[Rfam]
RNA sequence: GUAAAAAUAAGAAUUUAUCGAAAUAAUUUGCUCCGGCAAAAUCUGCAAGAUGCAGAAA
Numbered sequence: 001g002u003a004a005a006a007a008u009a010a011g012a013a014u015u016u017a018u019c020g021a022a023a024u025a026a027u028u029u030g031c032u033c034c035g036g037c038a039a040a041a042u043c044u045g046c047a048a049g050a051u052g053c054a055g056a057a058a
Stems, first nucleotide, its partner, number of pairs: 027040005042056006
Dot-bracket structure: ..........................(((((....))))).((((((...))))))..
A member of the RNA family "RAGATH-30 RNA", 58 nucleotides long. The family's RNA type in Rfam is small RNA. Pairs were carried over by alignment from the consensus structure, which is taken from published work.